[Rfam]
RNA sequence: UUGGCUUAAACUCAAUGAGUAAGGAAACUAGUUCUCUACCUGACAAGUAGAGAUUCCAAUGGCAUUUGUGCCUUGGCAAUUUAUGAGGGACAUGGAAUGGUCGGCGCAGGCCUCCUCUACUUUGGGACGGCUCUGCGCCAGCCGGUCCCCCAU
Numbered sequence: 001u002u003g004g005c006u007u008a009a010a011c012u013c014a015a016u017g018a019g020u021a022a023g024g025a026a027a028c029u030a031g032u033u034c035u036c037u038a039c040c041u042g043a044c045a046a047g048u049a050g051a052g053a054u055u056c057c058a059a060u061g062g063c064a065u066u067u068g069u070g071c072c073u074u075g076g077c078a079a080u081u082u083a084u085g086a087g088g089g090a091c092a093u094g095g096a097a098u099g100g101u102c103g104g105c106g107c108a109g110g111c112c113u114c115c116u117c118u119a120c121u122u123u124g125g126g127a128c129g130g131c132u133c134u135g136c137g138c139c140a141g142c143c144g145g146u147c148c149c150c151c152a153u
Stems, first nucleotide, its partner, number of pairs: 005023004033053007054078001056076003092153004099148002102144001103139002106136005113127004
RNA: U12 minor spliceosomal RNA